Annotation: Rfam assigns this 70-nucleotide RNA from Thiorhodovibrio frisius to the family "int-alpA RNA". It is annotated as a small RNA. The source organism's lineage runs through Bacteria, Pseudomonadota, Chromatiales, Chromatiaceae and Thiorhodovibrio.
RNA sequence: CGCCAGUCUAGGUUAGCUCCCGAAAAGGCGGCCCACCUUCCCGCCCUGGCUGGCGCACCCUUCCUGAAGG
Numbered sequence: 001c002g003c004c005a006g007u008c009u010a011g012g013u014u015a016g017c018u019c020c021c022g023a024a025a026a027g028g029c030g031g032c033c034c035a036c037c038u039u040c041c042c043g044c045c046c047u048g049g050c051u052g053g054c055g056c057a058c059c060c061u062u063c064c065u066g067a068a069g070g
Stems, first nucleotide, its partner, number of pairs: 001055008011021002027045005036069001038067002